This 70-nucleotide sequence from Acyrthosiphon pisum belongs to the Rfam family "mir-3017 microRNA precursor family".
Rfam links the family to the GO terms RISC complex and miRNA-mediated post-transcriptional gene silencing.
The organism belongs to Acyrthosiphon, within Eukaryota.

[Rfam]
RNA sequence: CCGUGUUCUGUGACUAACUCGACUGGCGCCGGACUGACGGGCGCCCGCCGGUCUGUCACAGAUCACGGGA
Numbered sequence: 001c002c003g004u005g006u007u008c009u010g011u012g013a014c015u016a017a018c019u020c021g022a023c024u025g026g027c028g029c030c031g032g033a034c035u036g037a038c039g040g041g042c043g044c045c046c047g048c049c050g051g052u053c054u055g056u057c058a059c060a061g062a063u064c065a066c067g068g069g070a
Stems, first nucleotide, its partner, number of pairs: 001068005007062008017052002020050002025045003